[Rfam]
RNA sequence: CCCCGUAUUUCCCUGCGGGUACCCUACGGGAGCGUGCCGCCAUGUUGUCUUCAUGGGGUGCGGAGCCUUCCAGACAACGUACCGAAUCCCAACUUUGUUGGGAGGGGUGGAAACCGCGAGGUGGACGCUCUCCGGGCAGCCUCAAGCCGGGUGAGGGC
Numbered sequence: 001c002c003c004c005g006u007a008u009u010u011c012c013c014u015g016c017g018g019g020u021a022c023c024c025u026a027c028g029g030g031a032g033c034g035u036g037c038c039g040c041c042a043u044g045u046u047g048u049c050u051u052c053a054u055g056g057g058g059u060g061c062g063g064a065g066c067c068u069u070c071c072a073g074a075c076a077a078c079g080u081a082c083c084g085a086a087u088c089c090c091a092a093c094u095u096u097g098u099u100g101g102g103a104g105g106g107g108u109g110g111a112a113a114c115c116g117c118g119a120g121g122u123g124g125a126c127g128c129u130c131u132c133c134g135g136g137c138a139g140c141c142u143c144a145a146g147c148c149g150g151g152u153g154a155g156g157g158c
Stems, first nucleotide, its partner, number of pairs: 002019006028071005033062006040055001042054003087103005105130004114121002132151002135148003
The record is a 158-nucleotide sequence from Desulfuromusa kysingii, which matches "Group II catalytic intron D1-D4-7" in Rfam. The pairing is the family consensus, mapped onto this sequence. Rfam describes the family as follows. Group II introns are found in rRNA, tRNA and mRNA of organelles in fungi, plants and protists, and also in mRNA in bacteria. On this family, see Lehmann and Schmidt, Crit Rev Biochem Mol Biol 2003: "Group II introns: structure and catalytic versatility of large natural ribozymes".